RNA sequence: CCCUCCGAAGUUUCUCACAGGAUAGCUGAGACUCGAUCGGGUGUGUCAAGUAAAGCGACUGAUUACGAGUGACGGGCGUGGAUAGAUGUUCGACUCGUUCUCAAACUCUGAAUUGGCACGGCGCCUCCUUGCUUGGAUGAAGGGGUAAGCGCGACCGAGAGUCUCAAGUGGGCCAGUUUUGGUAAGCAGAGCUGGCGAUGCGGGAUGAACCGAGUGUCGAGUUAAAGUGUCCAACUACACGCUCACCUAGAUCCCAGGAAGGUGUCAGCUGAUACUGACAGCGGCGCGGUGGUCAUAGAAGUCGAAAUCCGCUAAGGAGUGUGUUACAACUCACCUGCCGAACCAGUAGGCCCCGAAAAUGGAUGACGCUCAAGCGUGUGACUUAGACUCGACCGUGAGCGCGAACGUUGCUCUCACGGGUAGGAGGGCGUGGGUGUUGCUUCGAAGCCAUGGCGUAAGCCUCGGUGGAGCGGCGCCUAGUGCAGAU
Numbered sequence: 001c002c003c004u005c006c007g008a009a010g011u012u013u014c015u016c017a018c019a020g021g022a023u024a025g026c027u028g029a030g031a032c033u034c035g036a037u038c039g040g041g042u043g044u045g046u047c048a049a050g051u052a053a054a055g056c057g058a059c060u061g062a063u064u065a066c067g068a069g070u071g072a073c074g075g076g077c078g079u080g081g082a083u084a085g086a087u088g089u090u091c092g093a094c095u096c097g098u099u100c101u102c103a104a105a106c107u108c109u110g111a112a113u114u115g116g117c118a119c120g121g122c123g124c125c126u127c128c129u130u131g132c133u134u135g136g137a138u139g140a141a142g143g144g145g146u147a148a149g150c151g152c153g154a155c156c157g158a159g160a161g162u163c164u165c166a167a168g169u170g171g172g173c174c175a176g177u178u179u180u181g182g183u184a185a186g187c188a189g190a191g192c193u194g195g196c197g198a199u200g201c202g203g204g205a206u207g208a209a210c211c212g213a214g215u216g217u218c219g220a221g222u223u224a225a226a227g228u229g230u231c232c233a234a235c236u237a238c239a240c241g242c243u244c245a246c247c248u249a250g251a252u253c254c255c256a257g258g259a260a261g262g263u264g265u266c267a268g269c270u271g272a273u274a275c276u277g278a279c280a281g282c283g284g285c286g287c288g289g290u291g292g293u294c295a296u297a298g299a300a301g302u303c304g305a306a307a308u309c310c311g312c313u314a315a316g317g318a319g320u321g322u323g324u325u326a327c328a329a330c331u332c333a334c335c336u337g338c339c340g341a342a343c344c345a346g347u348a349g350g351c352c353c354c355g356a357a358a359a360u361g362g363a364u365g366a367c368g369c370u371c372a373a374g375c376g377u378g379u380g381a382c383u384u385a386g387a388c389u390c391g392a393c394c395g396u397g398a399g400c401g402c403g404a405a406c407g408u409u410g411c412u413c414u415c416a417c418g419g420g421u422a423g424g425a426g427g428g429c430g431u432g433g434g435u436g437u438u439g440c441u442u443c444g445a446a447g448c449c450a451u452g453g454c455g456u457a458a459g460c461c462u463c464g465g466u467g468g469a470g471c472g473g474c475g476c477c478u479a480g481u482g483c484a485g486a487u
Stems, first nucleotide, its partner, number of pairs: 001428006011024001013022003027166007042120007053109001054107002060103003065098005073092005079086001125145006172196010201212003216393005222387001226383003235380001237379001240376003261353002264351003268347004273342001281338004287311003293305002312316001317332001321330002394418006401411002429482001431479010447466002452461003

The record is a 487-nucleotide part of an RNA from Bigelowiella natans, which matches "Eukaryotic large subunit ribosomal RNA" in Rfam. The family's consensus secondary structure is taken from published work.